Rfam assigns this 230-nucleotide part of an RNA from Cryptosporangium arvum to the family "Bacterial large subunit ribosomal RNA". The organism belongs to Cryptosporangium arvum, within Bacteria. The family has 102 seed sequences and 51,934 matches in Rfam 15.1. Pairs were carried over by alignment from the consensus structure, which is taken from published work.

RNA sequence: GAGUUAGUGGUACGUGGCGAGGUUAACCCGUGUGGGGUAGCCGUAGCGAAAGCGAGUCCGAAUAGGGCGUGUGAGUCGCGUGCUCUAGACCCGAAGCGGAGUGAUCUAUCCAUGGGCAGGGUGAAGCGCCGGUAAGACGGCGUGGAGGCCCGAACCCACCAGGGUUGAAAACCUGGGGGAUGACCUGUGGAUAGGGGUGAAAGGCCAAUCAAACUCCGUGAUAGCUGGUU
Numbered sequence: 001g002a003g004u005u006a007g008u009g010g011u012a013c014g015u016g017g018c019g020a021g022g023u024u025a026a027c028c029c030g031u032g033u034g035g036g037g038u039a040g041c042c043g044u045a046g047c048g049a050a051a052g053c054g055a056g057u058c059c060g061a062a063u064a065g066g067g068c069g070u071g072u073g074a075g076u077c078g079c080g081u082g083c084u085c086u087a088g089a090c091c092c093g094a095a096g097c098g099g100a101g102u103g104a105u106c107u108a109u110c111c112a113u114g115g116g117c118a119g120g121g122u123g124a125a126g127c128g129c130c131g132g133u134a135a136g137a138c139g140g141c142g143u144g145g146a147g148g149c150c151c152g153a154a155c156c157c158a159c160c161a162g163g164g165u166u167g168a169a170a171a172c173c174u175g176g177g178g179g180a181u182g183a184c185c186u187g188u189g190g191a192u193a194g195g196g197g198u199g200a201a202a203g204g205c206c207a208a209u210c211a212a213a214c215u216c217c218g219u220g221a222u223a224g225c226u227g228g229u230u
Stems, first nucleotide, its partner, number of pairs: 005087003009084010021042004027036003046053002056068004090228002093225001097218006106194011117182001119151004126143006155179003159176005196206003